[Rfam]
RNA sequence: ACGUCCGCCGGAUGGGACGGCCUCACCGUCCGGCGCCGCGCCCGGUUACCCUGACUCCGUGCGCCUUCCCGCCGGAAGCCGCAAAGCCGACAGCCGUCGCAUCCCAGGGAGCCCGUUCAUG
Numbered sequence: 001a002c003g004u005c006c007g008c009c010g011g012a013u014g015g016g017a018c019g020g021c022c023u024c025a026c027c028g029u030c031c032g033g034c035g036c037c038g039c040g041c042c043c044g045g046u047u048a049c050c051c052u053g054a055c056u057c058c059g060u061g062c063g064c065c066u067u068c069c070c071g072c073c074g075g076a077a078g079c080c081g082c083a084a085a086g087c088c089g090a091c092a093g094c095c096g097u098c099g100c101a102u103c104c105c106a107g108g109g110a111g112c113c114c115g116u117u118c119a120u121g
Base pairs, nucleotide, nucleotide: 060083061082062081063080066077067076068075069074086100087099089098090097091096

Shown here is a 121-nucleotide RNA from Streptomyces tsukubensis, a member of the family "Streptomyces-metH RNA". Taxonomically the source falls in Streptomyces tsukubensis (Bacteria, Bacillati, Actinomycetes, Streptomycetaceae). The family's consensus secondary structure is taken from published work.